[Rfam]
The family of this 46-nucleotide RNA from Trichomonas vaginalis is "Histone 3' UTR stem-loop". Rfam's curators write: The mRNAs of metazoan histone genes lack a poly-A tail. 3' end processing occurs at a site between a highly conserved stem-loop (modelled by this family) and a purine rich region around 20 nts downstream (the histone downstream element, or HDE). The base pairs follow the family's consensus structure, which is taken from published work. Lineage of the source: Eukaryota > Trichomonadida > Trichomonadidae > Trichomonas > Trichomonas vaginalis. By type it is a cis-regulatory element.
RNA sequence: UAAUUGGAUUUUUUGAAAUCCACCUGCAGUAGGAUAAAGGAGAUGU
Numbered sequence: 001u002a003a004u005u006g007g008a009u010u011u012u013u014u015g016a017a018a019u020c021c022a023c024c025u026g027c028a029g030u031a032g033g034a035u036a037a038a039g040g041a042g043a044u045g046u
Stems, first nucleotide, its partner, number of pairs: 006021006